[Rfam]
MIR5298 microRNA precursor family: a 91-nucleotide RNA sequence from Medicago truncatula. Pairs were carried over by alignment from the consensus structure, which was predicted with RNAalifold. Lineage of the source: Eukaryota > Spermatophyta > Pentapetalae > Fabaceae > Medicago.
RNA sequence: AGAUUUUUUUUUCAUUUUCUUCUAGAAUUUUUUUGGGAUUCUUGUUGUUAAAGUUUGACGGAGAUGAUAUGAAGAUGAAAAAGAGGAGAAG
Number, nucleotide and partner (000 for none) at each position: 001a000002g000003a000004u000005u085006u084007u083008u082009u081010u080011u079012u078013c077014a076015u075016u074017u073018u072019c071020u000021u000022c000023u000024a000025g000026a000027a000028u000029u000030u000031u000032u000033u000034u000035g000036g000037g056038a055039u000040u053041c000042u051043u050044g000045u000046u000047g000048u000049u000050a043051a042052a000053g040054u000055u038056u037057g000058a000059c000060g000061g000062a000063g000064a000065u000066g000067a000068u000069a000070u000071g019072a018073a017074g016075a015076u014077g013078a012079a011080a010081a009082a008083g007084a006085g005086g000087a000088g000089a000090a000091g000